[Rfam]
RNA: L31-Gammaproteobacteria ribosomal protein leader
RNA sequence: CGUGUGGUGCCGGUGCAGGAGAUUUUCCUGGCACGGGAGAGCGACACGGCCUUAUACCGAGGU
Numbered sequence: 001c002g003u004g005u006g007g008u009g010c011c012g013g014u015g016c017a018g019g020a021g022a023u024u025u026u027c028c029u030g031g032c033a034c035g036g037g038a039g040a041g042c043g044a045c046a047c048g049g050c051c052u053u054a055u056a057c058c059g060a061g062g063u
Stems, first nucleotide, its partner, number of pairs: 001048005007042002010037002013034003